Shown here is a 108-nucleotide RNA from Corticibacter populi, a member of the family "Glycine riboswitch aptamer".

RNA sequence: GCGUCGAUACCGGGAGAGACGGGCCCUGCCGCCACAUGCUGCGGCAGGGCCCGCGCCGAAGGAGCAACCGCCCCGGAAACUCUCAGGCAAAAGGACCGGUAUCGACUU
Numbered sequence: 001g002c003g004u005c006g007a008u009a010c011c012g013g014g015a016g017a018g019a020c021g022g023g024c025c026c027u028g029c030c031g032c033c034a035c036a037u038g039c040u041g042c043g044g045c046a047g048g049g050c051c052c053g054c055g056c057c058g059a060a061g062g063a064g065c066a067a068c069c070g071c072c073c074c075g076g077a078a079a080c081u082c083u084c085a086g087g088c089a090a091a092a093g094g095a096c097c098g099g100u101a102u103c104g105a106c107u108u
Stems, first nucleotide, its partner, number of pairs: 006103008020053013055088003058084002062082003068076002